A member of the RNA family "SL2 RNA" from Cylicocyclus nassatus, 109 nucleotides long. This family represents SL2 RNA. SL2 RNA is involved in trans splicing in lower eukaryotes. Trans-splicing is a form of RNA processing. Gene Ontology term of the family: mRNA trans splicing, via spliceosome. The base pairs follow the family's consensus structure, which is taken from published work. The family's RNA type in Rfam is non-coding RNA gene. The literature on the family includes a 2000 paper in Mol Cell Biol by Evans and Blumenthal, "trans splicing of polycistronic Caenorhabditis elegans pre-mRNAs: analysis of the SL2 RNA".
RNA sequence: GGUUUUAACCCAGUAUCACAAGGUACUAAGGGCGUCCGACCUUCCCAUGUGGUUGCGUCGAAAACCUUAAUUUUUGGACUGCACACCCGGGGUUAUCCGGGAGUGCGAA
Numbered sequence: 001g002g003u004u005u006u007a008a009c010c011c012a013g014u015a016u017c018a019c020a021a022g023g024u025a026c027u028a029a030g031g032g033c034g035u036c037c038g039a040c041c042u043u044c045c046c047a048u049g050u051g052g053u054u055g056c057g058u059c060g061a062a063a064a065c066c067u068u069a070a071u072u073u074u075u076g077g078a079c080u081g082c083a084c085a086c087c088c089g090g091g092g093u094u095a096u097c098c099g100g101g102a103g104u105g106c107g108a109a
Stems, first nucleotide, its partner, number of pairs: 007035001009032002014028002018024001037060004041055001044052002082107001084105003088101001090098002